[Rfam]
This 141-nucleotide RNA sequence from Bacillus sp. FJAT-27986 belongs to the Rfam family "c-di-AMP riboswitch aptamer (ydaO/yuaA leader)".
This family represents a conserved RNA structure found upstream of the ydaO and yuaA genes in Bacillus subtilis and related genes in other bacteria.
The pairing is the family consensus, mapped onto this sequence.
RNA sequence: CAUUCUUAAUCGCUGAAUCUUGAAAGAGCGGGGGAACCACUUUUGUGACAAUGUCACUUGGGGUGAAUCCUUAACAAGGUAGGGCUACUCUUUUGGCCCGAAUCCGACAGCUAACCUCGUAAGCGUUAAGGGAGAGGAUGG
Number, nucleotide and partner (000 for none) at each position: 001c000002a000003u000004u000005c000006u000007u000008a000009a000010u000011c125012g124013c123014u122015g000016a000017a000018u027019c026020u025021u000022g000023a000024a000025a020026g019027a018028g120029c119030g118031g117032g116033g115034g000035a000036a000037c000038c060039a059040c000041u000042u000043u000044u000045g000046u000047g000048a000049c000050a000051a000052u000053g000054u000055c000056a000057c000058u000059u039060g038061g105062g104063g103064u000065g000066a000067a000068u000069c079070c078071u077072u076073a000074a000075c000076a072077a071078g070079g069080u000081a000082g099083g098084g097085c096086u000087a000088c000089u000090c000091u000092u000093u000094u000095g000096g085097c084098c083099c082100g000101a000102a000103u063104c062105c061106g000107a000108c000109a000110g000111c000112u000113a000114a000115c033116c032117u031118c030119g029120u028121a000122a014123g013124c012125g011126u000127u000128a000129a000130g000131g000132g000133a000134g000135a000136g000137g000138a000139u000140g000141g000